[Rfam]
RNA sequence: GGCGAUUCUCCAGUGAUGCACCCUAGAACUGGGCUCCCUCCUCUCUGGUUUCAGGUGUGUCACCCUAGAACCACA
Numbered sequence: 001g002g003c004g005a006u007u008c009u010c011c012a013g014u015g016a017u018g019c020a021c022c023c024u025a026g027a028a029c030u031g032g033g034c035u036c037c038c039u040c041c042u043c044u045c046u047g048g049u050u051u052c053a054g055g056u057g058u059g060u061c062a063c064c065c066u067a068g069a070a071c072c073a074c075a
Stems, first nucleotide, its partner, number of pairs: 002074001006070004013063005019057004026051008
mir-9223 microRNA precursor family: a 75-nucleotide RNA from Pipistrellus kuhlii. Rfam links the family to the GO terms miRNA-mediated post-transcriptional gene silencing and RISC complex. The base pairs follow the family's consensus structure, which was predicted with RNAalifold. Lineage of the source: Eukaryota > Eumetazoa > Deuterostomia > Amniota > Pipistrellus.